[Rfam]
RNA sequence: GCUUCCUAUCCUUCAUUCCACCGGAGUCUGUGUGUCUGACCAAUCAGAUUUCAGUGGUGUGAAGAAUACGAGACA
Numbered sequence: 001g002c003u004u005c006c007u008a009u010c011c012u013u014c015a016u017u018c019c020a021c022c023g024g025a026g027u028c029u030g031u032g033u034g035u036c037u038g039a040c041c042a043a044u045c046a047g048a049u050u051u052c053a054g055u056g057g058u059g060u061g062a063a064g065a066a067u068a069c070g071a072g073a074c075a
Stems, first nucleotide, its partner, number of pairs: 011064006019056003023052004028047003

This 75-nucleotide RNA from Ameiurus melas belongs to the Rfam family "mir-205 microRNA precursor family". The match comes from Rfam's covariance-model search (81 bits). Taxonomically the source falls in Ameiurus (Eukaryota, Bilateria, Characiphysae, Siluroidei). On this family, see Lim et al., Science 2003: "Vertebrate microRNA genes".